[Rfam]
RNA sequence: GCAAGGGGGCUGGCGACUCUCCGUGAGGAGGAAGCUCCGCCCACCCAUAAAGUGCAUCAUGCCCCGAGAGGGGCUGAAUGGCCUACAGAAACGACACGGUCUUGGAACGAUGACAAUGAUAGUAAAUUGAGGAGUUCCAAGGGGCCGGUGAAACGAGGCCAUUCUGCACGGGUGCAAGCGUUUUAGCGCUUAGCCGAAUGUCGCCGAAAUUACAGAAGGCGGGCUAUAGCCCCCAUGC
Numbered sequence: 001g002c003a004a005g006g007g008g009g010c011u012g013g014c015g016a017c018u019c020u021c022c023g024u025g026a027g028g029a030g031g032a033a034g035c036u037c038c039g040c041c042c043a044c045c046c047a048u049a050a051a052g053u054g055c056a057u058c059a060u061g062c063c064c065c066g067a068g069a070g071g072g073g074c075u076g077a078a079u080g081g082c083c084u085a086c087a088g089a090a091a092c093g094a095c096a097c098g099g100u101c102u103u104g105g106a107a108c109g110a111u112g113a114c115a116a117u118g119a120u121a122g123u124a125a126a127u128u129g130a131g132g133a134g135u136u137c138c139a140a141g142g143g144g145c146c147g148g149u150g151a152a153a154c155g156a157g158g159c160c161a162u163u164c165u166g167c168a169c170g171g172g173u174g175c176a177a178g179c180g181u182u183u184u185a186g187c188g189c190u191u192a193g194c195c196g197a198a199u200g201u202c203g204c205c206g207a208a209a210u211u212a213c214a215g216a217a218g219g220c221g222g223g224c225u226a227u228a229g230c231c232c233c234c235a236u237g238c
Stems, first nucleotide, its partner, number of pairs: 001238003005234007012205006021028002033225003037222005042174004052169005061074004076164002081159004097147003100142008119127002178187002
Notes: Shown here is a 238-nucleotide RNA sequence from Methanofervidicoccus abyssi, a member of the family "Archaeal RNase P". About the family: Ribonuclease P (RNase P) is a ubiquitous endoribonuclease, found in archaea, bacteria and eukarya as well as chloroplasts and mitochondria. Its best characterised activity is the generation of mature 5'-ends of tRNAs by cleaving the 5'-leader elements of precursor-tRNAs. Cellular RNase Ps are ribonucleoproteins. RNA from bacterial RNase Ps retains its catalytic activity in the absence of the protein subunit, i.e. it is a ribozyme. The literature on the family includes a 1998 paper in Annu Rev Biochem by Frank and Pace, "Ribonuclease P: unity and diversity in a tRNA processing ribozyme". The family's RNA type in Rfam is ribozyme. Rfam links the family to the GO terms ribonuclease P activity, multimeric ribonuclease P complex and tRNA processing. Its Rfam clan is "RNaseP clan". The base pairs follow the family's consensus structure, which is taken from published work.